[Rfam]
Nucleotides: 134
Base pairs, nucleotide, nucleotide: 003061004060008056021045023043024042025041026040027039074127075126076125077124078123088112089111091109092108
Number, partner (000 for none) and nucleotide at each position: 001000a002000a003061c004060c005000u006000c007000a008056u009000u010000c011000u012000u013000g014000a015000u016000g017000a018000g019000a020000g021045u022000g023043g024042g025041c026040a027039u028000u029000g030000u031000g032000g033000a034000c035000c036000a037000u038000a039027g040026u041025g042024u043023c044000a045021a046000g047000a048000a049000a050000u051000u052000g053000c054000u055000a056008a057000c058000a059000u060004g061003g062000c063000u064000c065000a066000a067000c068000a069000g070000a071000g072000g073000u074127g075126c076125a077124g078123g079000u080000u081000a082000u083000g084000c085000u086000c087000c088112a089111u090000g091109a092108c093000a094000g095000u096000g097000a098000a099000c100000g101000u102000g103000c104000u105000g106000c107000a108092g109091u110000g111089g112088u113000a114000a115000c116000a117000a118000g119000g120000u121000g122000g123078c124077c125076u126075g127074u128000g129000a130000c131000u132000c133000u134000g
A member of the RNA family "Small nucleolar RNA SNORA1" from Sciurus carolinensis, 134 nucleotides long.
Pairs were carried over by alignment from the consensus structure, which was predicted with PFOLD.
Rfam links the family to the GO terms nucleolus and RNA processing.
ACA1 is a member of the H/ACA class of snoRNA that guide the sites of modification of uridines to pseudouridines.
By type it is an H/ACA-box small nucleolar RNA.
The family has 29 seed sequences and 1,282 matches in Rfam 15.1.